[Rfam]
RNA: Small nucleolar RNA R32/R81/Z41
RNA sequence: UGAUGAGCAUAAGGAAUGGUGAUGAUUGAUUGAUUUUUUUUUUCAAAUGAUCCAAAAAUUAUAAUCCUUAUUUGCUACGUUCUUUCUGAUUCAUUC
Numbered sequence: 001u002g003a004u005g006a007g008c009a010u011a012a013g014g015a016a017u018g019g020u021g022a023u024g025a026u027u028g029a030u031u032g033a034u035u036u037u038u039u040u041u042u043u044c045a046a047a048u049g050a051u052c053c054a055a056a057a058a059u060u061a062u063a064a065u066c067c068u069u070a071u072u073u074g075c076u077a078c079g080u081u082c083u084u085u086c087u088g089a090u091u092c093a094u095u096c
Stems, first nucleotide, its partner, number of pairs: 004093004